[Rfam]
RNA sequence: CCCCUGCUGUGGUUUAUGGCUUUUUAUUCCUAUGUGAUUGCAUUUCUAUCUCACAUAGGGCUGAAAGCCAUGCACUGCAACGGGAA
Numbered sequence: 001c002c003c004c005u006g007c008u009g010u011g012g013u014u015u016a017u018g019g020c021u022u023u024u025u026a027u028u029c030c031u032a033u034g035u036g037a038u039u040g041c042a043u044u045u046c047u048a049u050c051u052c053a054c055a056u057a058g059g060g061c062u063g064a065a066a067g068c069c070a071u072g073c074a075c076u077g078c079a080a081c082g083g084g085a086a
Base pairs, nucleotide, nucleotide: 003084004083005082006081008079009078010077011076012075013074015072016071017070018069019068020067021066022065023064026062028060029059030058031057032056033055034054035053036052037051

Rfam assigns this 86-nucleotide RNA from Eleutherodactylus coqui to the family "mir-135 microRNA precursor family".
Pairs were carried over by alignment from the consensus structure, which was predicted with PFOLD.
A reference for the family is Lagos-Quintana et al. (2002), "Identification of tissue-specific microRNAs from mouse", Curr Biol.
Lineage of the source: Eukaryota > Gnathostomata > Eleutherodactylidae > Eleutherodactylinae > Eleutherodactylus.